The record is a 382-nucleotide part of an RNA from Mycoplasma suis, which matches "Bacterial large subunit ribosomal RNA" in Rfam. Lineage of the source: Bacteria > Bacillati > Mollicutes > Mycoplasma > Mycoplasma suis. Rfam's curators put it in the seed alignment.
[Rfam]
Nucleotides: 382
Stems, first nucleotide, its partner, number of pairs: 005021005023380004031360004037340002042066006051059002073336003077108002082103003086099001088097003112129005132332011145317001149313004157300004163294003169287004173194006195254002200248003206242003210233007218226002258279009346355002362374004
Number, partner (000 for none) and nucleotide at each position: 001000g002000a003000a004000u005021g006020a007019a008018a009017g010000u011000g012000a013000g014000a015000a016000u017009c018008u019007u020006u021005c022000u023380a024379g025378c026377c027000g028000a029000u030000u031360g032359a033358u034357c035000a036000a037340g038339g039000u040000u041000u042066c043065c044064g045063g046062g047061g048000c049000u050000a051059g052058g053000u054000u055000c056000g057000u058052c059051c060000u061047c062046c063045u064044c065043g066042g067000g068000u069000u070000a071000g072000u073336c074335g075334a076000u077108c078107c079000u080000a081000a082103g083102g084101u085000g086099a087000g088097g089096u090095c091000g092000a093000a094000a095090g096089a097088c098000g099086u100000a101084a102083c103082u104000g105000a106000u107078g108077g109000a110000c111000a112129a113128c114127g115126g116125g117000u118000u119000a120000a121000u122000a123000u124000u125116c126115c127114c128113g129112u130000a131000c132332u133331a134330c135329c136328u137327u138326g139325a140324g141323u142322u143000g144000u145317u146000a147000a148000u149313g150312g151311g152310u153000g154000g155000a156000c157300a158299a159298a160297a161000g162000a163294g164293g165292u166000u167000g168000a169287g170286g171285u172284a173194a174193g175192a176191g177190g178189a179000u180000u181000a182000u183000u184000g185000g186000a187000u188000u189178u190177c191176c192175u193174u194173u195254u196253a197000a198000g199000u200248u201247u202246c203000a204000a205000a206242g207241c208240a209000a210233g211232c212231u213230a214229g215228g216227g217000a218226u219225g220000a221000a222000a223000a224000u225219c226218a227216c228215c229214u230213u231212a232211g233210c234000a235000u236000a237000c238000a239000u240208u241207g242206u243000g244000a245000g246202g247201a248200a249000c250000g251000a252000a253196u254195a255000c256000g257000a258279u259278c260277u261276c262275u263274g264273g265272u266271g267000g268000c269000g270000a271266c272265a273264c274263u275262a276261g277260a278259g279258a280000a281000a282000g283000u284172u285171a286170c287169u288000g289000a290000c291000a292165a293164u294163c295000g296000c297160u298159u299158u300157u301000c302000g303000a304000g305000a306000a307000a308000a309000g310152a311151c312150u313149c314000u315000a316000a317145a318000c319000a320000u321000a322142a323141a324140c325139u326138c327137a328136g329135g330134g331133u332132a333000u334075u335074c336073g337000u338000a339038c340037c341000g342000a343000a344000a345000a346355c347354g348000a349000a350000c351000a352000c353000a354347c355346g356000u357034g358033a359032u360031c361000a362374a363373g364372g365371a366000g367000a368000a369000u370000a371365u372364c373363c374362u375000a376000a377026g378025g379024c380023u381000a382000g